[Rfam]
Shown here is a 99-nucleotide sequence from Paenibacillus stellifer, a member of the family "Glycine riboswitch aptamer". The source organism's lineage runs through Bacteria, Bacillati, Caryophanales, Paenibacillaceae and Paenibacillus.
RNA sequence: CUCUGGAGAGCACCGGACGCUUACGGCGGACGGUCACCAACGGGGAAACCUGCUUUUGACACAAAAUCGCGGGGUAACUCUCAGGUACAAGGGACAGAG
Numbered sequence: 001c002u003c004u005g006g007a008g009a010g011c012a013c014c015g016g017a018c019g020c021u022u023a024c025g026g027c028g029g030a031c032g033g034u035c036a037c038c039a040a041c042g043g044g045g046a047a048a049c050c051u052g053c054u055u056u057u058g059a060c061a062c063a064a065a066a067u068c069g070c071g072g073g074g075u076a077a078c079u080c081u082c083a084g085g086u087a088c089a090a091g092g093g094a095c096a097g098a099g
Stems, first nucleotide, its partner, number of pairs: 001099005012034004036086003040081001043080003049073005